The record is a 115-nucleotide RNA from Luteolibacter yonseiensis, which matches "Y RNA-like" in Rfam. For this family Rfam cites "An RNA degradation machine sculpted by Ro autoantigen and noncoding RNA" (Chen et al., Cell, 2013). NCBI's taxonomy places the organism under Bacteria, Pseudomonadati, Verrucomicrobiia, Verrucomicrobiaceae, Luteolibacter. Rfam's curators write: In Deinococcus radiodurans Rsr is tethered via Y RNA to the exoribonuclease PNPase and channels single-stranded RNA into the PNPase cavity. Rsr and Y RNA enhance degradation of structured RNAs by PNPase. This role could be conserved, as Rsr and ncRNAs called YrlA and YrlB (Y RNA like) also associate with PNPase in an evolutionary distant bacterium Salmonella Typhimurium.
[Rfam]
RNA sequence: AUCGCGAAUGCCAGAAGGAUUACAUUGGUCGCCGGUUCGAUCCCGGCCCUUGCGAAAGCAGGGUAGCUCAGUGGUAGAGCAAUUAUCGGAUCCUUCCCUCUCUUGUCGCGGUUUC
Numbered sequence: 001a002u003c004g005c006g007a008a009u010g011c012c013a014g015a016a017g018g019a020u021u022a023c024a025u026u027g028g029u030c031g032c033c034g035g036u037u038c039g040a041u042c043c044c045g046g047c048c049c050u051u052g053c054g055a056a057a058g059c060a061g062g063g064u065a066g067c068u069c070a071g072u073g074g075u076a077g078a079g080c081a082a083u084u085a086u087c088g089g090a091u092c093c094u095u096c097c098c099u100c101u102c103u104u105g106u107c108g109c110g111g112u113u114u115c
Base pairs, nucleotide, nucleotide: 002111003110004109005108006107007106014096015095016094017093018092019091024083025082026081031047032046033045034044035043038074048063049062050061051060052059053058066080067079068078069077